[Rfam]
RNA: Small nucleolar RNA SNORA40
RNA sequence: GGAGCUUGUAUAUCUGUUUUUCUCUAACUUGUAGGCUAAGCCUUAAUAGACAAGUGCAAAAAAUAAAUCCUCUUUGCAACCUAGAACUCAUUGUUCGGUAUGAGUUUUUAUAAUACAAGAAGGAAUAUU
Numbered sequence: 001g002g003a004g005c006u007u008g009u010a011u012a013u014c015u016g017u018u019u020u021u022c023u024c025u026a027a028c029u030u031g032u033a034g035g036c037u038a039a040g041c042c043u044u045a046a047u048a049g050a051c052a053a054g055u056g057c058a059a060a061a062a063a064u065a066a067a068u069c070c071u072c073u074u075u076g077c078a079a080c081c082u083a084g085a086a087c088u089c090a091u092u093g094u095u096c097g098g099u100a101u102g103a104g105u106u107u108u109u110a111u112a113a114u115a116c117a118a119g120a121a122g123g124a125a126u127a128u129u
Stems, first nucleotide, its partner, number of pairs: 002057001004055006011048001016042001018040003023035001067126002070123002073119004083108009